[Rfam]
RNA sequence: CACAAAUGCGCCUAGGGUUCCGCUUCAUUUGUAAGGGCUGGUCCGAGAGGUGCACACGGCGUCUGCCGUGACACGGAGGGAUAAAAGCCCGGGAGAC
Numbered sequence: 001c002a003c004a005a006a007u008g009c010g011c012c013u014a015g016g017g018u019u020c021c022g023c024u025u026c027a028u029u030u031g032u033a034a035g036g037g038c039u040g041g042u043c044c045g046a047g048a049g050g051u052g053c054a055c056a057c058g059g060c061g062u063c064u065g066c067c068g069u070g071a072c073a074c075g076g077a078g079g080g081a082u083a084a085a086a087g088c089c090c091g092g093g094a095g096a097c
Stems, first nucleotide, its partner, number of pairs: 007054006015044002020041002022038001023035003055070006072092001074095001078090003